Rfam assigns this 113-nucleotide sequence from Thermobifida halotolerans to the family "ALIL pseudoknot". It is annotated as a cis-regulatory element. On this family, see Mazauric et al., J Biol Chem 2008: "Apical loop-internal loop RNA pseudoknots: a new type of stimulator of -1 translational frameshifting in bacteria". The family's consensus secondary structure is taken from published work. The match comes from Rfam's covariance-model search (53 bits).
[Rfam]
RNA sequence: GGCUUUUCUCGCCGCAGGGCUCGACCGCCCACACAUCAGGUAGUCGCCUUCAUCGACGCCCACCGCGCCGAGUUCGGGUCGAGCCGAUCCGCGCAGUGUCGCGGGUCGGCUCG
Dot-bracket structure: .............((.(.......).))..............................................((((......((.((((((......)))))).)).))))